[Rfam]
RNA sequence: ACGGAUCACGAGUUUGUGCGUGAAUCUAACGCCGUCGAAUCGCCCCGUGAUUAGUACCCGAAAAUAUGGACGGCUACGAUGGGGUUUGAUUCACGCACAAACUUGAGAUGUGCCC
Numbered sequence: 001a002c003g004g005a006u007c008a009c010g011a012g013u014u015u016g017u018g019c020g021u022g023a024a025u026c027u028a029a030c031g032c033c034g035u036c037g038a039a040u041c042g043c044c045c046c047g048u049g050a051u052u053a054g055u056a057c058c059c060g061a062a063a064a065u066a067u068g069g070a071c072g073g074c075u076a077c078g079a080u081g082g083g084g085u086u087u088g089a090u091u092c093a094c095g096c097a098c099a100a101a102c103u104u105g106a107g108a109u110g111u112g113c114c115c
Stems, first nucleotide, its partner, number of pairs: 002112002005109003011103016028086003032082002043072001
RNA: MIR403 microRNA precursor family